[Rfam]
RNA sequence: CUAUGGUUAAGGUUAACUAUGGCGGAAGGAG
Numbered sequence: 001c002u003a004u005g006g007u008u009a010a011g012g013u014u015a016a017c018u019a020u021g022g023c024g025g026a027a028g029g030a031g
Stems, first nucleotide, its partner, number of pairs: 001022008
Overview: The record is a 31-nucleotide RNA, which matches "L31-Firmicutes ribosomal protein leader" in Rfam. The family's RNA type in Rfam is cis-regulatory leader.